A member of the RNA family "mir-1544 microRNA precursor family" from Monodelphis domestica, 61 nucleotides long.
RNA sequence: UGCACCCAGGGAUAUAAUAGCGGUAAACUUCAAAGACCACUUUUCUAUCCCUGGUACUGGU
Numbered sequence: 001u002g003c004a005c006c007c008a009g010g011g012a013u014a015u016a017a018u019a020g021c022g023g024u025a026a027a028c029u030u031c032a033a034a035g036a037c038c039a040c041u042u043u044u045c046u047a048u049c050c051c052u053g054g055u056a057c058u059g060g061u
Base pairs, nucleotide, nucleotide: 006054007053008052009051010050011049012048013047014046016044017043019041020040022038023037
Notes: Gene Ontology terms of the family: RISC complex and miRNA-mediated post-transcriptional gene silencing. It is one of the family's seed sequences.